Source information:
A member of the RNA family "RNase MRP" from Cervus elaphus, 263 nucleotides long. The family's RNA type in Rfam is ribozyme. The literature on the family includes a 1993 paper in FASEB J by Schmitt et al., "Secondary structure of RNase MRP RNA as predicted by phylogenetic comparison". A search with the family's covariance model found it, with a score of 102 bits. Rfam describes the family as follows. RNase MRP is an enzymatically active ribonucleoprotein with two distinct roles in eukaryotes. In mitochondria it plays a direct role in the initiation of mitochondrial DNA replication. In the nucleus it is involved in precursor rRNA processing, where it cleaves the internal transcribed spacer 1 between 18S and 5.8S rRNAs. Despite distinct functions, RNase MRP has been shown to be evolutionarily related to RNase P. Like eukaryotic RNase P, RNase MRP is not catalytically active without associated protein subunits.
RNA sequence: GUUUGUGCUGAAGGCCUGUUUCCUAGGUGAUACACGGAGAACUAGCUCCUUGUUUGCACCUAGGGAAAUGUCCCCAGACCUCGGGCAAAGAGUGCCAUAUGUGCAUGCAUGUAGACUUUCCCUGCUUCUCAUGGUUAAGCCCUCCAAGAAGCUAUCCCGCCCCCUGCUGGGGGGAGCCAAGCGGACUGUGGCGAGGUAUCAUCCAUCAGCAGGCAGUGUGCCUCAGCGCACACCCAUCUCACAAGGCUCUUUCUCAGGACACA
Numbered sequence: 001g002u003u004u005g006u007g008c009u010g011a012a013g014g015c016c017u018g019u020u021u022c023c024u025a026g027g028u029g030a031u032a033c034a035c036g037g038a039g040a041a042c043u044a045g046c047u048c049c050u051u052g053u054u055u056g057c058a059c060c061u062a063g064g065g066a067a068a069u070g071u072c073c074c075c076a077g078a079c080c081u082c083g084g085g086c087a088a089a090g091a092g093u094g095c096c097a098u099a100u101g102u103g104c105a106u107g108c109a110u111g112u113a114g115a116c117u118u119u120c121c122c123u124g125c126u127u128c129u130c131a132u133g134g135u136u137a138a139g140c141c142c143u144c145c146a147a148g149a150a151g152c153u154a155u156c157c158c159g160c161c162c163c164c165u166g167c168u169g170g171g172g173g174g175a176g177c178c179a180a181g182c183g184g185a186c187u188g189u190g191g192c193g194a195g196g197u198a199u200c201a202u203c204c205a206u207c208a209g210c211a212g213g214c215a216g217u218g219u220g221c222c223u224c225a226g227c228g229c230a231c232a233c234c235c236a237u238c239u240c241a242c243a244a245g246g247c248u249c250u251u252u253c254u255c256a257g258g259a260c261a262c263a
Stems, first nucleotide, its partner, number of pairs: 004263004008257004014214006022064007037048003070247001072246002084096004097112006114200002120196002123193003130188002141184002144181001166177003216233006